The record is a 71-nucleotide sequence from Yasminevirus saudimassiliense, which matches "tRNA" in Rfam. The family has 954 seed sequences and 5,335,975 matches in Rfam 15.1.
RNA sequence: GCCUUUGUAGUUUAGUGGUAAAACUCCUCUCUUGUAAAGAGAAGUCGGAAGUUCGAUUCUUCCCAAAGGCA
Number, nucleotide and partner (000 for none) at each position: 001g070002c069003c068004u067005u066006u065007g064008u000009a000010g024011u023012u022013u021014a000015g000016u000017g000018g000019u000020a000021a013022a012023a011024c010025u000026c000027c041028u040029c039030u038031c000032u000033u000034g000035u000036a000037a000038a030039g029040a028041g027042a000043a000044g000045u000046c000047g063048g062049a061050a060051g059052u000053u000054c000055g000056a000057u000058u000059c051060u050061u049062c048063c047064c007065a006066a005067a004068g003069g002070c001071a000
Lineage of the source: Viruses > Varidnaviria > Bamfordvirae > Orthomivirineae > Yasminevirus saudimassiliense.
Rfam links the family to the GO term triplet codon-amino acid adaptor activity.
Rfam classes the family as a transfer RNA.
A reference for the family is Hou (1993), "The tertiary structure of tRNA and the development of the genetic code", Trends Biochem Sci.
The match comes from Rfam's covariance-model search (69 bits).